[Rfam]
RNA sequence: CUACCGGAGAUGACAUGGAACCCGAUCCCAGUCCUCACCCUGAAGUAACAGGAAUUUUCCGGUAAGCCACAGGUUAACGCCCGCUGCCUUACCGGUUUUGUAAGGCAGUGACGACCC
Numbered sequence: 001c002u003a004c005c006g007g008a009g010a011u012g013a014c015a016u017g018g019a020a021c022c023c024g025a026u027c028c029c030a031g032u033c034c035u036c037a038c039c040c041u042g043a044a045g046u047a048a049c050a051g052g053a054a055u056u057u058u059c060c061g062g063u064a065a066g067c068c069a070c071a072g073g074u075u076a077a078c079g080c081c082c083g084c085u086g087c088c089u090u091a092c093c094g095g096u097u098u099u100g101u102a103a104g105g106c107a108g109u110g111a112c113g114a115c116c117c
Stems, first nucleotide, its partner, number of pairs: 002064009016030003035047001037046002083109010
Annotation: This 117-nucleotide sequence from Cedecea neteri belongs to the Rfam family "Magnesium riboswitch aptamer (Magnesium responsive RNA element)". The match comes from Rfam's covariance-model search (59 bits). For this family Rfam cites "Regulation of magnesium homeostasis in Salmonella: Mg(2+) targets the mgtA transcript for degradation by RNase E" (Spinelli et al., FEMS Microbiol Lett, 2008). About the family: The Magnesium sensor RNA element is a cis-regulatory element that regulates the expression of the magnesium transporter protein MgtA. It is located in the 5' UTR of this gene. The base pairs follow the family's consensus structure, which is taken from published work.